[Rfam]
RNA sequence: AGAAGACUACCAUACUUCUUUAAUAUAUAUAUUAUAAAUAUAUAUAUUAAAGAAGUAUGGUAGUCUGAA
Numbered sequence: 001a002g003a004a005g006a007c008u009a010c011c012a013u014a015c016u017u018c019u020u021u022a023a024u025a026u027a028u029a030u031a032u033u034a035u036a037a038a039u040a041u042a043u044a045u046a047u048u049a050a051a052g053a054a055g056u057a058u059g060g061u062a063g064u065c066u067g068a069a
Stems, first nucleotide, its partner, number of pairs: 007063019027043005

Overview: A member of the RNA family "mir-1 microRNA precursor family" from Myotis lucifugus, 69 nucleotides long. The base pairs follow the family's consensus structure, which was predicted with RNAalifold. The match comes from Rfam's covariance-model search (48 bits). The family has 137 seed sequences and 4,474 matches in Rfam 15.1. Rfam's curators write: This family represents the microRNA (miRNA) mir-1 family. miRNAs are transcribed as ~70nt precursors (modelled here) and subsequently processed by the Dicer enzyme to give a ~22nt product.